[Rfam]
RNA sequence: GUCUCUGAUGAUGAUUCAGAUUGAAAAACUUUCGUUCUUCUGAGAAAGAAAACUCGUGAUGAAUGCUUAUGGAGACCUGAACUGAAGGGAC
Numbered sequence: 001g002u003c004u005c006u007g008a009u010g011a012u013g014a015u016u017c018a019g020a021u022u023g024a025a026a027a028a029c030u031u032u033c034g035u036u037c038u039u040c041u042g043a044g045a046a047a048g049a050a051a052a053c054u055c056g057u058g059a060u061g062a063a064u065g066c067u068u069a070u071g072g073a074g075a076c077c078u079g080a081a082c083u084g085a086a087g088g089g090a091c
Base pairs, nucleotide, nucleotide: 003089004088005087006086
Dot-bracket structure: ..((((...............................................................................))))..
This 91-nucleotide sequence from Carya illinoinensis belongs to the Rfam family "Small nucleolar RNA Z159/U59". Clan: SNORD59 clan. Rfam classes the family as a C/D-box small nucleolar RNA. Gene Ontology terms of the family: nucleolus and RNA processing. On this family, see Chen et al., Nucleic Acids Res 2003: "The high diversity of snoRNAs in plants: identification and comparative study of 120 snoRNA genes from Oryza sativa".